[Rfam]
RNA sequence: UAAAUAAAGGAGCAAUACCAACACUCUUACUAGAACAAGAAAUUGUUAUUGCUCCUUUAU
Numbered sequence: 001u002a003a004a005u006a007a008a009g010g011a012g013c014a015a016u017a018c019c020a021a022c023a024c025u026c027u028u029a030c031u032a033g034a035a036c037a038a039g040a041a042a043u044u045g046u047u048a049u050u051g052c053u054c055c056u057u058u059a060u
Stems, first nucleotide, its partner, number of pairs: 006058012025040004
Dot-bracket structure: .....((((((((((((.......((((........))))......))))))))))))..

Rfam assigns this 60-nucleotide sequence from Gossypium stocksii to the family "Plastid-psbA-4 3UTR RNA". For this family Rfam cites "Retrograde signaling in plants: A critical review focusing on the GUN pathway and beyond" (Richter et al., Plant Commun, 2023). The match comes from Rfam's covariance-model search (60 bits). Rfam's curators write: Plastid psbA-4 is a non-coding RNA (ncRNA) present in plastids. It was identified in inverted repeat sequences in the 3 prime untranslate region (3UTR) of photosystem II quinone-binding protein (psbA). Pairs were carried over by alignment from the consensus structure, which was predicted with LocARNA. By type it is a cis-regulatory element.